Shown here is a 66-nucleotide RNA from Aegilops tauschii, a member of the family "Small nucleolar RNA Z105".
RNA sequence: CCGGCAUGAUGAGGAAGGAAAUUGUUGUCUGAUCUAUUUGAUGAUGAAUCGUCCUACUCAUACUAA
Numbered sequence: 001c002c003g004g005c006a007u008g009a010u011g012a013g014g015a016a017g018g019a020a021a022u023u024g025u026u027g028u029c030u031g032a033u034c035u036a037u038u039u040g041a042u043g044a045u046g047a048a049u050c051g052u053c054c055u056a057c058u059c060a061u062a063c064u065a066a
Base pairs, nucleotide, nucleotide: 006061007060008059009058025044026043029040
Dot-bracket structure: .....((((...............((..(..........)..)).............)))).....
About this RNA:
A reference for the family is Chen et al. (2003), "The high diversity of snoRNAs in plants: identification and comparative study of 120 snoRNA genes from Oryza sativa", Nucleic Acids Res. Rfam links the family to the GO terms nucleolus and RNA processing. The organism belongs to Aegilops tauschii, within Eukaryota. The base pairs follow the family's consensus structure, which was predicted with CMfinder.